[Rfam]
RNA sequence: ACCAGGGUCCGGGACCCUCUGGCAGCCUGGAGCAGGCUGCGAUGUCGGACUCUCUCA
Number, nucleotide and partner (000 for none) at each position: 001a000002c000003c000004a000005g000006g051007g050008u049009c048010c047011g046012g045013g000014a000015c000016c000017c000018u000019c000020u000021g000022g040023c039024a038025g037026c036027c035028u034029g000030g000031a000032g000033c000034a028035g027036g026037c025038u024039g023040c022041g000042a000043u000044g000045u012046c011047g010048g009049a008050c007051u006052c000053u000054c000055u000056c000057a000

A member of the RNA family "terC RNA" from Microvirga guangxiensis, 57 nucleotides long. By type it is a cis-regulatory element. The family's consensus secondary structure is taken from published work.